[Rfam]
RNA sequence: UCCCAGUGACAGGCCAUCAGCAGACCAAGGACAACAUUGGGUCUUCAUGUCUUCAUUGGACUGCUGAUGGCCUGUCAUUGGGG
Numbered sequence: 001u002c003c004c005a006g007u008g009a010c011a012g013g014c015c016a017u018c019a020g021c022a023g024a025c026c027a028a029g030g031a032c033a034a035c036a037u038u039g040g041g042u043c044u045u046c047a048u049g050u051c052u053u054c055a056u057u058g059g060a061c062u063g064c065u066g067a068u069g070g071c072c073u074g075u076c077a078u079u080g081g082g083g
Stems, first nucleotide, its partner, number of pairs: 002082022025059004030054002034050004
Rfam assigns this 83-nucleotide sequence from Pongo pygmaeus to the family "mir-4529 microRNA precursor family". The source organism's lineage runs through Eukaryota, Chordata, Amniota, Hominidae and Pongo. The sequence is in the family's curated seed alignment. Gene Ontology terms of the family: miRNA-mediated post-transcriptional gene silencing and RISC complex.